Description: A member of the RNA family "mraW RNA" from Amycolatopsis antarctica, 111 nucleotides long. The source organism's lineage runs through Bacteria, Actinomycetes, Pseudonocardiales, Pseudonocardiaceae and Amycolatopsis. It scores 62 bits against the family's covariance model. The family has 45 seed sequences and 851 matches in Rfam 15.1. By type it is a cis-regulatory element. The family's consensus secondary structure is taken from published work.
RNA sequence: GGUGGCGGAUGCCGUGAGGCCUCUGUCCGCUCUCGGUGGCCCUGGUGCACCUUCCCCGGCACCAGGCCCGUCAGCGGGCGGACGGAGACCUGACCGCAUCGGCGGACGUCC
Dot-bracket structure: .........(((.((..((.((((((((((((.(.((((.((((((((..........)))))))).))).).).)))))))))))).))..)).))).............